[Rfam]
RNA sequence: AUGCAGUGAUGAUACCCAUCCUGGUUUCGCUUUCUGCUGAAUUCCAGUGAAGAUGUGUUUCUCUUGGCUGUCUGAGCAU
Numbered sequence: 001a002u003g004c005a006g007u008g009a010u011g012a013u014a015c016c017c018a019u020c021c022u023g024g025u026u027u028c029g030c031u032u033u034c035u036g037c038u039g040a041a042u043u044c045c046a047g048u049g050a051a052g053a054u055g056u057g058u059u060u061c062u063c064u065u066g067g068c069u070g071u072c073u074g075a076g077c078a079u
Stems, first nucleotide, its partner, number of pairs: 001079004
The family of this 79-nucleotide RNA from Atlantisia rogersi is "Small nucleolar RNA SNORD53/SNORD92". On this family, see Kiss-Laszlo et al., Cell 1996: "Site-specific ribose methylation of preribosomal RNA: a novel function for small nucleolar RNAs". Its family is annotated with RNA processing and nucleolus in the Gene Ontology.